Rfam assigns this 122-nucleotide RNA sequence to the family "SAM-I/IV (S-adenosyl methionine) riboswitch aptamer".
Pairs were carried over by alignment from the consensus structure, which is taken from published work.
Its Rfam clan is "SAM clan".

[Rfam]
RNA sequence: AUCCUGUAUGUAGAGUGCCUCUCGAUAGGGGCCACCAAACCGAGCAACUCCACAAGUAGCCACGGUGGUUAGAAUCGCAAGAUUCCAUAUGUAGGAGACAACCUAAAAAAUGGAGGUGCCCG
Numbered sequence: 001a002u003c004c005u006g007u008a009u010g011u012a013g014a015g016u017g018c019c020u021c022u023c024g025a026u027a028g029g030g031g032c033c034a035c036c037a038a039a040c041c042g043a044g045c046a047a048c049u050c051c052a053c054a055a056g057u058a059g060c061c062a063c064g065g066u067g068g069u070u071a072g073a074a075u076c077g078c079a080a081g082a083u084u085c086c087a088u089a090u091g092u093a094g095g096a097g098a099c100a101a102c103c104u105a106a107a108a109a110a111u112g113g114a115g116g117u118g119c120c121c122g
Stems, first nucleotide, its partner, number of pairs: 006090005015033001017032005034069003040065003044060002050115001092105004